Background: The record is a 44-nucleotide sequence from Sutcliffiella cohnii, which matches "Ribosomal protein L19 leader" in Rfam. Rfam's curators write: This family is a putative r-protein leader autoregulatory structure found in B. subtilis and other low-GC Gram-positive bacteria. It is located in the 5' untranslated regions of mRNAs encoding ribosomal protein L19 (rplS). The family's consensus secondary structure was predicted with CMfinder. It scores 38 bits against the family's covariance model. NCBI's taxonomy places the organism under Bacteria, Bacillati, Bacilli, Bacillaceae, Sutcliffiella. Its family is annotated with regulation of gene expression in the Gene Ontology.

[Rfam]
RNA sequence: ACGAUGUUCCGCUGCAUGAAAAAUAGUAAUGGAAUGAGCAUCUG
Numbered sequence: 001a002c003g004a005u006g007u008u009c010c011g012c013u014g015c016a017u018g019a020a021a022a023a024u025a026g027u028a029a030u031g032g033a034a035u036g037a038g039c040a041u042c043u044g
Stems, first nucleotide, its partner, number of pairs: 003042007013034001015031003